Overview
The record is an 88-nucleotide RNA from Roseitalea porphyridii, which matches "Glycine riboswitch aptamer" in Rfam.
[Rfam]
RNA sequence: UCCGUCGCGUUGGGAGAAUCCGGCUCUGCCGGUGCCGAAGGAGCAACCGCCCCGGUAAACUCUCAGGCCCAGGGACCAUCGCGACGCU
Numbered sequence: 001u002c003c004g005u006c007g008c009g010u011u012g013g014g015a016g017a018a019u020c021c022g023g024c025u026c027u028g029c030c031g032g033u034g035c036c037g038a039a040g041g042a043g044c045a046a047c048c049g050c051c052c053c054g055g056u057a058a059a060c061u062c063u064c065a066g067g068c069c070c071a072g073g074g075a076c077c078a079u080c081g082c083g084a085c086g087c088u
Stems, first nucleotide, its partner, number of pairs: 006083004011078003020032004034068003037064002041062003047055002